[Rfam]
Rfam assigns this 52-nucleotide RNA from Paragemmobacter aquarius to the family "ffh sRNA".
A search with the family's covariance model found it, with a score of 57 bits.
The family's consensus secondary structure is taken from published work.
The family's RNA type in Rfam is small RNA.
RNA sequence: UUUUGCCGGGAUCGCCAUCUGCCAGCGCGUUGCGCCCGCAGGUGCCUUUUCC
Numbered sequence: 001u002u003u004u005g006c007c008g009g010g011a012u013c014g015c016c017a018u019c020u021g022c023c024a025g026c027g028c029g030u031u032g033c034g035c036c037c038g039c040a041g042g043u044g045c046c047u048u049u050u051c052c
Base pairs, nucleotide, nucleotide: 016044017043018042019041020040021039022038025035026034027033028032